[Rfam]
Rfam assigns this 141-nucleotide RNA from Pollutimonas nitritireducens to the family "radC RNA". By type it is a cis-regulatory element. Lineage of the source: Bacteria > Pseudomonadati > Pseudomonadota > Alcaligenaceae > Pollutimonas.
RNA sequence: AAGCUCAUCGCAUGUGUCGCUGAUUGCAUCAGCACCAUGCCAGCAGUCCGGGUUUGUAGGCUGCCGUGGAGUUUUUCCAUGCCACCCACCAGUCCGCCAUCGCAUCGUCUUUGCGGACAAGCGUCUUCGCGGCGCCGAUGC
Numbered sequence: 001a002a003g004c005u006c007a008u009c010g011c012a013u014g015u016g017u018c019g020c021u022g023a024u025u026g027c028a029u030c031a032g033c034a035c036c037a038u039g040c041c042a043g044c045a046g047u048c049c050g051g052g053u054u055u056g057u058a059g060g061c062u063g064c065c066g067u068g069g070a071g072u073u074u075u076u077c078c079a080u081g082c083c084a085c086c087c088a089c090c091a092g093u094c095c096g097c098c099a100u101c102g103c104a105u106c107g108u109c110u111u112u113g114c115g116g117a118c119a120a121g122c123g124u125c126u127u128c129g130c131g132g133c134g135c136c137g138a139u140g141c
Base pairs, nucleotide, nucleotide: 011039012038013037014036019033020032021031022030023029024028043064044063045062046061047060048059051085065081066080067079068078069077070076071075113141114140115139121135122134123133124132125131
Rfam 15.1 lists 500 matches to the family in 142 species.